[Rfam]
RNA sequence: CGUUACCACAGGGGGGGCUUCUUAGCUGAGAUUGAAUCCGCGUGUUUUUGGAUUCUGACCCUUUGAACCUGUUCGUUAAUACGAGCGUAGGGAUUGUGGCGAUUGCAUUUC
Numbered sequence: 001c002g003u004u005a006c007c008a009c010a011g012g013g014g015g016g017g018c019u020u021c022u023u024a025g026c027u028g029a030g031a032u033u034g035a036a037u038c039c040g041c042g043u044g045u046u047u048u049u050g051g052a053u054u055c056u057g058a059c060c061c062u063u064u065g066a067a068c069c070u071g072u073u074c075g076u077u078a079a080u081a082c083g084a085g086c087g088u089a090g091g092g093a094u095u096g097u098g099g100c101g102a103u104u105g106c107a108u109u110u111c
Stems, first nucleotide, its partner, number of pairs: 006099005011063004017026003034055007068091004074085001075082001
Rfam assigns this 111-nucleotide RNA sequence from Listeria innocua to the family "TPP riboswitch aptamer (THI element)".
Rfam links the family to the GO term thiamine pyrophosphate binding.
The organism belongs to Listeria, within Bacteria.